The record is a 77-nucleotide sequence from Caenorhabditis bovis, which matches "mir-250 microRNA precursor family" in Rfam. The base pairs follow the family's consensus structure, which was predicted with RNAalifold. The match comes from Rfam's covariance-model search (62 bits). Lineage of the source: Eukaryota > Opisthokonta > Nematoda > Peloderinae > Caenorhabditis. Rfam 15.1 lists 22 matches to the family in 21 species. A reference for the family is de Wit et al. (2009), "Repertoire and evolution of miRNA genes in four divergent nematode species", Genome Res.
RNA sequence: UCUACCGGUCCUUCAGUUGUCUAGUGAUACGCCGCAUAGUGAAAUGGUCGAAUCACAGUCAACUGUUGGCCCGGUUC
Number, nucleotide and partner (000 for none) at each position: 001u000002c000003u000004a075005c074006c073007g072008g000009u000010c069011c068012u000013u000014c065015a064016g063017u062018u061019g060020u000021c058022u057023a000024g056025u055026g054027a053028u052029a000030c050031g049032c047033c046034g045035c000036a000037u000038a000039g000040u000041g000042a000043a000044a000045u034046g033047g032048u000049c031050g030051a000052a028053u027054c026055a025056c024057a022058g021059u000060c019061a018062a017063c016064u015065g014066u000067u000068g011069g010070c000071c000072c007073g006074g005075u004076u000077c000

Overview
Rfam links the family to the GO terms miRNA-mediated post-transcriptional gene silencing and RISC complex.